The record is a 145-nucleotide RNA sequence from Pseudomonas oryzae, which matches "PrrF RNA" in Rfam.
Rfam classes the family as a small RNA.
Rfam describes the family as follows. PrrF RNA is a small RNA involved in iron homeostasis and is found exclusively in Pseudomonas species.
It scores 118 bits against the family's covariance model.
On this family, see Wilderman et al., Proc Natl Acad Sci U S A 2004: "Identification of tandem duplicate regulatory small RNAs in Pseudomonas aeruginosa involved in iron homeostasis".
RNA sequence: UUGACUCAAAAAUGAGAAGCAUUAUUAUUUAAACCACUGGUCGCGAGGCCAGUGGAUAAACGGGAAAGGCGCCAGCCAAUCUUCGGUUUAUCUCCUCAUCAGGCUAAAUCACGGUUUCGACCCGGCUCUGCCGGGUCUUUUUUUG
Numbered sequence: 001u002u003g004a005c006u007c008a009a010a011a012a013u014g015a016g017a018a019g020c021a022u023u024a025u026u027a028u029u030u031a032a033a034c035c036a037c038u039g040g041u042c043g044c045g046a047g048g049c050c051a052g053u054g055g056a057u058a059a060a061c062g063g064g065a066a067a068g069g070c071g072c073c074a075g076c077c078a079a080u081c082u083u084c085g086g087u088u089u090a091u092c093u094c095c096u097c098a099u100c101a102g103g104c105u106a107a108a109u110c111a112c113g114g115u116u117u118c119g120a121c122c123c124g125g126c127u128c129u130g131c132c133g134g135g136u137c138u139u140u141u142u143u144u145g
Stems, first nucleotide, its partner, number of pairs: 034055009061086001063084003067080001069077001094103003119137008
NCBI's taxonomy places the organism under Bacteria, Pseudomonadota, Gammaproteobacteria, Pseudomonadaceae, Pseudomonas. Gene Ontology term of the family: sRNA-mediated gene silencing.